RNA sequence: GGUUAUGAGCGUCAGCGACAAGCCCUGGCUUGCUGGCCGGCAACCCUCCCACGCGGCGGGGUGCUCCAGGUGAUGACCUGAUCGGCGUCGUAGUGGCGUCGGUAAGCGCGUGCU
Numbered sequence: 001g002g003u004u005a006u007g008a009g010c011g012u013c014a015g016c017g018a019c020a021a022g023c024c025c026u027g028g029c030u031u032g033c034u035g036g037c038c039g040g041c042a043a044c045c046c047u048c049c050c051a052c053g054c055g056g057c058g059g060g061g062u063g064c065u066c067c068a069g070g071u072g073a074u075g076a077c078c079u080g081a082u083c084g085g086c087g088u089c090g091u092a093g094u095g096g097c098g099u100c101g102g103u104a105a106g107c108g109c110g111u112g113c114u
Stems, first nucleotide, its partner, number of pairs: 001078004009038001011037006021030002039065003044061003048056002081103010